RNA: Group II catalytic intron D1-D4-7
RNA sequence: CCGAUUGUUCCGUCAAUCGUAACCUACCGGUGCAUGCUGGAUUGGUAACGGUCUGGCGUGAAGCCACCGGAACAACGUAACUGAGAUUGACCCAGAAAAACGGACACCUAUUCUUUUGAGAAGGAGGUGCCGGAAAUGGGCAAGCAUCGUACCCCAUACCCU
Numbered sequence: 001c002c003g004a005u006u007g008u009u010c011c012g013u014c015a016a017u018c019g020u021a022a023c024c025u026a027c028c029g030g031u032g033c034a035u036g037c038u039g040g041a042u043u044g045g046u047a048a049c050g051g052u053c054u055g056g057c058g059u060g061a062a063g064c065c066a067c068c069g070g071a072a073c074a075a076c077g078u079a080a081c082u083g084a085g086a087u088u089g090a091c092c093c094a095g096a097a098a099a100a101c102g103g104a105c106a107c108c109u110a111u112u113c114u115u116u117u118g119a120g121a122a123g124g125a126g127g128u129g130c131c132g133g134a135a136a137u138g139g140g141c142a143a144g145c146a147u148c149g150u151a152c153c154c155c156a157u158a159c160c161c162u
Stems, first nucleotide, its partner, number of pairs: 002019006028069005033060012088106002091103002107133002116123002138154003142150001